[Rfam]
Nucleotides: 133
Stems, first nucleotide, its partner, number of pairs: 002084007021071005
Number, partner (000 for none) and nucleotide at each position: 001000g002084c003083u004082u005081u006080u007079g008078a009000g010000g011000a012000g013000c014000g015000u016000u017000g018000c019000g020000a021071c022070g023069g024068a025067u026000c027000g028000u029000u030000g031000g032000u033000a034000a035000u036000c037000a038000a039000c040000c041000a042000c043000c044000a045000g046000u047000g048000c049000u050000a051000g052000u053000u054000a055000c056000c057000a058000a059000u060000a061000c062000u063000a064000g065000c066000c067025a068024u069023c070022c071021g072000c073000c074000a075000g076000g077000c078008u079007c080006a081005a082004a083003a084002g085000c086000u087000c088000a089000a090000a091000c092000g093000u094000u095000a096000c097000c098000g099000u100000u101000g102000g103000c104000a105000u106000u107000u108000u109000c110000c111000a112000a113000c114000u115000u116000u117000a118000a119000c120000g121000g122000c123000g124000c125000u126000c127000a128000c129000c130000c131000a132000a133000u
Background: Rfam assigns this 133-nucleotide RNA from Jezberella montanilacus to the family "SAH (S-adenosyl-L-homocysteine) riboswitch aptamer". The source organism's lineage runs through Bacteria, Pseudomonadati, Betaproteobacteria, Alcaligenaceae and Jezberella. A reference for the family is Wang et al. (2008), "Riboswitches that sense S-adenosylhomocysteine and activate genes involved in coenzyme recycling", Mol Cell.